This 108-nucleotide RNA sequence from Citrus unshiu belongs to the Rfam family "Small nucleolar RNA snoR97". For this family Rfam cites "Experimental RNomics: identification of 140 candidates for small non-messenger RNAs in the plant Arabidopsis thaliana" (Marker et al., Curr Biol, 2002).
RNA sequence: CAUUACAGAUAGAUAUUGGGUCUGAAAAAACUCAGAGAUUGAUGUGUUGUCAUCAGCUUCUUCUCUUGUAUUUCAAAGAGUGUGGAGUUAAAUAACAGCACUACAAUU
Numbered sequence: 001c002a003u004u005a006c007a008g009a010u011a012g013a014u015a016u017u018g019g020g021u022c023u024g025a026a027a028a029a030a031c032u033c034a035g036a037g038a039u040u041g042a043u044g045u046g047u048u049g050u051c052a053u054c055a056g057c058u059u060c061u062u063c064u065c066u067u068g069u070a071u072u073u074c075a076a077a078g079a080g081u082g083u084g085g086a087g088u089u090a091a092a093u094a095a096c097a098g099c100a101c102u103a104c105a106a107u108u
Stems, first nucleotide, its partner, number of pairs: 044101006055089006063080003

Its family is annotated with nucleolus and RNA processing in the Gene Ontology. Pairs were carried over by alignment from the consensus structure, which was predicted with WAR.